[Rfam]
RNA sequence: AGAGGUCACCGGGUUGAGGCUGUAAGCAGAAGUGCUCAUGGUGCAGCCUGUCAGAUUCCAAUUAAAUCUGUGAAUUCUGCA
Numbered sequence: 001a002g003a004g005g006u007c008a009c010c011g012g013g014u015u016g017a018g019g020c021u022g023u024a025a026g027c028a029g030a031a032g033u034g035c036u037c038a039u040g041g042u043g044c045a046g047c048c049u050g051u052c053a054g055a056u057u058c059c060a061a062u063u064a065a066a067u068c069u070g071u072g073a074a075u076u077c078u079g080c081a
Stems, first nucleotide, its partner, number of pairs: 018048004026080006032044003052070006